[Rfam]
RNA: Streptomyces-metH RNA
RNA sequence: UACGUCCGUCCCGUGGACGCCCCGACCAUACGGCCCCACCCCGGGCUACCCUGGCCGCGUGCGCCUUCCCAAGGGGGCGCAAAGCCGACAGCCGUCGCACUCCAGGGAGCCCUUACAUG
Numbered sequence: 001u002a003c004g005u006c007c008g009u010c011c012c013g014u015g016g017a018c019g020c021c022c023c024g025a026c027c028a029u030a031c032g033g034c035c036c037c038a039c040c041c042c043g044g045g046c047u048a049c050c051c052u053g054g055c056c057g058c059g060u061g062c063g064c065c066u067u068c069c070c071a072a073g074g075g076g077g078c079g080c081a082a083a084g085c086c087g088a089c090a091g092c093c094g095u096c097g098c099a100c101u102c103c104a105g106g107g108a109g110c111c112c113u114u115a116c117a118u119g
Stems, first nucleotide, its partner, number of pairs: 060081004065076004084098002087096003